[Rfam]
RNA sequence: GCUAAUUGGCUGUGAGGACCUGCUGUGUCUAUAACGGAAGAAUUGCUGUGCUGGAGACACAGUAGGGCUUUGGUGCUCACUGAGU
Numbered sequence: 001g002c003u004a005a006u007u008g009g010c011u012g013u014g015a016g017g018a019c020c021u022g023c024u025g026u027g028u029c030u031a032u033a034a035c036g037g038a039a040g041a042a043u044u045g046c047u048g049u050g051c052u053g054g055a056g057a058c059a060c061a062g063u064a065g066g067g068c069u070u071u072g073g074u075g076c077u078c079a080c081u082g083a084g085u
Stems, first nucleotide, its partner, number of pairs: 007079002009076002013072005019066012034049004
RNA: mir-9228 microRNA precursor family